[Rfam]
Nucleotides: 159
Base pairs, nucleotide, nucleotide: 011144012143013142014141018039019038020037021036022035023034024033025032026031040139041138042137043136044135045134050062051061063124064123065122071100072099073098074097075096076095103118104117105116
Number, partner (000 for none) and nucleotide at each position: 001000g002000g003000c004000c005000g006000g007000a008000c009000g010000c011144c012143g013142c014141c015000g016000a017000g018039u019038c020037g021036u022035u023034c024033c025032g026031c027000g028000u029000c030000a031026g032025c033024g034023g035022a036021g037020c038019g039018a040139g041138c042137c043136g044135g045134g046000g047000a048000c049000c050062c051061a052000c053000c054000g055000c056000a057000g058000u059000c060000c061051u062050g063124g064123g065122g066000u067000g068000a069000a070000u071100c072099c073098c074097g075096c076095g077000c078000g079000c080000c081000g082000a083000g084000c085000c086000c087000u088000g089000c090000u091000c092000g093000g094000a095076c096075g097074c098073g099072g100071g101000u102000a103118g104117g105116g106000c107000g108000u109000c110000u111000u112000c113000c114000c115000u116105c117104c118103c119000g120000a121000a122065c123064c124063c125000g126000u127000c128000a129000g130000c131000u132000a133000a134045c135044u136043c137042g138041g139040u140000a141014g142013g143012c144011g145000g146000c147000c148000a149000c150000g151000g152000a153000a154000g155000a156000a157000a158000c159000g